The family of this 270-nucleotide RNA sequence from Anaerocolumna cellulosilytica is "Clostridiales-3 RNA". It is annotated as a small RNA.
RNA sequence: ACGAGAGUCGAAGGACCGAAAGGUGAAGAGGGAGCGAGUUUAAGGAAAAGCAUGAAUAUGGCGGAAGGAUAAUAACCUACACGGGGGUCUAACGAGAACUCCCAAUCCUCGAAAUGGCAGAAGAGGGGAUUGCAUCAAGAAAUUAAUUUGAGGCAUCGUAAUCACAAUCAAGUGACAUGCGGCGUUAAUUCGCCAGUAACUCCCGGGGAUGAGUACAUCCCUUGUGUACGGGGCGAUGAGGUGCUUUGAGAGAAGCGGCGUACACUUACA
Numbered sequence: 001a002c003g004a005g006a007g008u009c010g011a012a013g014g015a016c017c018g019a020a021a022g023g024u025g026a027a028g029a030g031g032g033a034g035c036g037a038g039u040u041u042a043a044g045g046a047a048a049a050g051c052a053u054g055a056a057u058a059u060g061g062c063g064g065a066a067g068g069a070u071a072a073u074a075a076c077c078u079a080c081a082c083g084g085g086g087g088u089c090u091a092a093c094g095a096g097a098a099c100u101c102c103c104a105a106u107c108c109u110c111g112a113a114a115u116g117g118c119a120g121a122a123g124a125g126g127g128g129a130u131u132g133c134a135u136c137a138a139g140a141a142a143u144u145a146a147u148u149u150g151a152g153g154c155a156u157c158g159u160a161a162u163c164a165c166a167a168u169c170a171a172g173u174g175a176c177a178u179g180c181g182g183c184g185u186u187a188a189u190u191c192g193c194c195a196g197u198a199a200c201u202c203c204c205g206g207g208g209a210u211g212a213g214u215a216c217a218u219c220c221c222u223u224g225u226g227u228a229c230g231g232g233g234c235g236a237u238g239a240g241g242u243g244c245u246u247u248g249a250g251a252g253a254a255g256c257g258g259c260g261u262a263c264a265c266u267u268a269c270a
Stems, first nucleotide, its partner, number of pairs: 008029002015024003078160003083103006106127005128157003132154002135151005206221006224265007243256005